[Rfam]
RNA sequence: AUAAAGGCUCUUCUAAGAGCCACCCACAAUUUCUUUAAAACAGCUG
Numbered sequence: 001a002u003a004a005a006g007g008c009u010c011u012u013c014u015a016a017g018a019g020c021c022a023c024c025c026a027c028a029a030u031u032u033c034u035u036u037a038a039a040a041c042a043g044c045u046g
Stems, first nucleotide, its partner, number of pairs: 006021006